[Rfam]
Rfam assigns this 116-nucleotide RNA sequence from Bucco capensis to the family "Small nucleolar RNA ACA64". The organism belongs to Bucco, within Eukaryota. The family's consensus secondary structure was predicted with WAR.
RNA sequence: ACAGUCUGAAAAUCACUUGGGGUCUUCUGUGGCCCCUGGUGCGAUAACUGUGCCAACAGCAUUAAACUCAUUGCCCAUGGUAAAGUGUGGGGAGUGAUACCCAUGUUCCUAUAAUC
Numbered sequence: 001a002c003a004g005u006c007u008g009a010a011a012a013u014c015a016c017u018u019g020g021g022g023u024c025u026u027c028u029g030u031g032g033c034c035c036c037u038g039g040u041g042c043g044a045u046a047a048c049u050g051u052g053c054c055a056a057c058a059g060c061a062u063u064a065a066a067c068u069c070a071u072u073g074c075c076c077a078u079g080g081u082a083a084a085g086u087g088u089g090g091g092g093a094g095u096g097a098u099a100c101c102c103a104u105g106u107u108c109c110u111a112u113a114a115u116c
Base pairs, nucleotide, nucleotide: 006050008048010045014041015040016039021034022033023032024031058107059106060105061104062103068097069096070095071094072093076089077088078087